[Rfam]
Shown here is a 91-nucleotide RNA from Lactobacillus corticis, a member of the family "Lacto-usp RNA".
By type it is a small RNA.

RNA sequence: GAUCAAACUAGAAGACGUGGUGGUUGGUAAGUAACUACUGAAUCGGAAUACUAGCUCGUCCUAGGAUCCAUAUUCACUGCGAUACCGACCG
Dot-bracket structure: .....................((((((((.........(((((.(((...((((......))))..)))..)))))......)))))))).
The family's consensus secondary structure is taken from published work.